[Rfam]
Nucleotides: 076
Stems, first nucleotide, its partner, number of pairs: 002074003006070002010066003015061003021055009
Number, partner (000 for none) and nucleotide at each position: 001000u002074u003073g004072c005000c006070u007069a008000a009000a010066c011065c012064c013000g014000u015061a016060g017059a018000u019000c020000c021055g022054a023053a024052c025051u026050u027049g028048u029047g030000u031000u032000c033000a034000c035000a036000c037000a038000u039000a040000c041000g042000a043000u044000a045000a046000c047029c048028a049027c050026a051025g052024g053023u054022u055021c056000u057000c058000u059017u060016c061015u062000a063000u064012g065011g066010g067000u068000c069007u070006a071000a072004g073003c074002a075000g076000u
The record is a 76-nucleotide RNA sequence from Medioppia subpectinata, which matches "mir-10 microRNA precursor family" in Rfam.
Lineage of the source: Eukaryota > Brachypylina > Oppioidea > Oppiidae > Medioppia.
For this family Rfam cites "An extensive class of small RNAs in Caenorhabditis elegans" (Lee and Ambros, Science, 2001).
The family's consensus secondary structure was predicted with PFOLD.